Description:
Shown here is a 98-nucleotide sequence from Steinernema carpocapsae, a member of the family "SmY spliceosomal RNA". The literature on the family includes a 2007 paper in RNA by MacMorris et al., "A novel family of C. elegans snRNPs contains proteins associated with trans-splicing". The organism belongs to Steinernema, within Eukaryota. The family's consensus secondary structure is taken from published work. Rfam 15.1 lists 408 matches to the family in 67 species.
[Rfam]
RNA sequence: GCGAGAGCACAACCGCAUACAGGGCCUUCGCCUCCGAAAGGAAGGAAAAGACCCGGUGUACAAUUUUUGGAAAGUCCUGAGGGCUCGCCCUCGGGACA
Numbered sequence: 001g002c003g004a005g006a007g008c009a010c011a012a013c014c015g016c017a018u019a020c021a022g023g024g025c026c027u028u029c030g031c032c033u034c035c036g037a038a039a040g041g042a043a044g045g046a047a048a049a050g051a052c053c054c055g056g057u058g059u060a061c062a063a064u065u066u067u068u069g070g071a072a073a074g075u076c077c078u079g080a081g082g083g084c085u086c087g088c089c090c091u092c093g094g095g096a097c098a
Stems, first nucleotide, its partner, number of pairs: 022054003026050003074097009